[Rfam]
RNA sequence: CGGGUGGGCCCUCGAAAGUCGAAAGGCGGGGGGAUUCAGUCGGGACGCUAGUCCCGGGAGAGGCUGUGGAAGAGCGGACCUUUACGGGCCGAUCCGCGGCCGAGCUCCCGGCGUGCCGACGCACUUUCUCCCGCCCAGUAGUACGCCGCGACCGGUGGAGCCACUUCUAAGCUUCAGUCGUAAGGACUGGUGGCUGAAGGUGGCCGGUGGUACGCUCCUCGGAGAAACCGCCGGUGUUAUAUCUGUCCAGUCUGGACGUACGCUCCACCGAGGCACGACCGGGCCCUUAGCGGCCAAUCCGCACCCUCUCCCCCUCGGGGGAACGGGAGAUCCGUCAGGAAUCCGAAGUCAGGAGGUCCCGCAGGUCGGCGGGCCGCCGACGUCGGGCGACGCUGGACGGUCUCUAUCCGAGAGGUGCCGGAGGUCAGCGGCGAGUAGGUCGGUCACCCACCCGACCCGUCUUGAAACACGG
Numbered sequence: 001c002g003g004g005u006g007g008g009c010c011c012u013c014g015a016a017a018g019u020c021g022a023a024a025g026g027c028g029g030g031g032g033g034a035u036u037c038a039g040u041c042g043g044g045a046c047g048c049u050a051g052u053c054c055c056g057g058g059a060g061a062g063g064c065u066g067u068g069g070a071a072g073a074g075c076g077g078a079c080c081u082u083u084a085c086g087g088g089c090c091g092a093u094c095c096g097c098g099g100c101c102g103a104g105c106u107c108c109c110g111g112c113g114u115g116c117c118g119a120c121g122c123a124c125u126u127u128c129u130c131c132c133g134c135c136c137a138g139u140a141g142u143a144c145g146c147c148g149c150g151a152c153c154g155g156u157g158g159a160g161c162c163a164c165u166u167c168u169a170a171g172c173u174u175c176a177g178u179c180g181u182a183a184g185g186a187c188u189g190g191u192g193g194c195u196g197a198a199g200g201u202g203g204c205c206g207g208u209g210g211u212a213c214g215c216u217c218c219u220c221g222g223a224g225a226a227a228c229c230g231c232c233g234g235u236g237u238u239a240u241a242u243c244u245g246u247c248c249a250g251u252c253u254g255g256a257c258g259u260a261c262g263c264u265c266c267a268c269c270g271a272g273g274c275a276c277g278a279c280c281g282g283g284c285c286c287u288u289a290g291c292g293g294c295c296a297a298u299c300c301g302c303a304c305c306c307u308c309u310c311c312c313c314c315u316c317g318g319g320g321g322a323a324c325g326g327g328a329g330a331u332c333c334g335u336c337a338g339g340a341a342u343c344c345g346a347a348g349u350c351a352g353g354a355g356g357u358c359c360c361g362c363a364g365g366u367c368g369g370c371g372g373g374c375c376g377c378c379g380a381c382g383u384c385g386g387g388c389g390a391c392g393c394u395g396g397a398c399g400g401u402c403u404c405u406a407u408c409c410g411a412g413a414g415g416u417g418c419c420g421g422a423g424g425u426c427a428g429c430g431g432c433g434a435g436u437a438g439g440u441c442g443g444u445c446a447c448c449c450a451c452c453c454g455a456c457c458c459g460u461c462u463u464g465a466a467a468c469a470c471g472g
Stems, first nucleotide, its partner, number of pairs: 001454008011443002020138001025135010142435001144433005457472004
The record is a 472-nucleotide part of an RNA, which matches "Eukaryotic large subunit ribosomal RNA" in Rfam. Rfam's curators put it in the seed alignment.